The record is a 79-nucleotide RNA sequence from Crocodylus porosus, which matches "Mammalian CPEB3 ribozyme" in Rfam. Rfam's curators write: The mammalian CPEB3 ribozyme is a self cleaving RNA located in the second intron of the CPEB3 gene which belongs to a family of genes regulating messenger RNA polyadenylation. The base pairs follow the family's consensus structure, which is taken from published work. The match comes from Rfam's covariance-model search (37 bits).
[Rfam]
RNA sequence: AGAGGUCACAAAUUUGAGGCCAUAGCAGAAGUGUUCAUGGUACAGGCUGUCAGACUUCAACAAAUCUACAAAUUCUGCU
Numbered sequence: 001a002g003a004g005g006u007c008a009c010a011a012a013u014u015u016g017a018g019g020c021c022a023u024a025g026c027a028g029a030a031g032u033g034u035u036c037a038u039g040g041u042a043c044a045g046g047c048u049g050u051c052a053g054a055c056u057u058c059a060a061c062a063a064a065u066c067u068a069c070a071a072a073u074u075c076u077g078c079u
Base pairs, nucleotide, nucleotide: 018047020045024079025078026077027076028075029074030073031043032042033041052067053066054065056063057062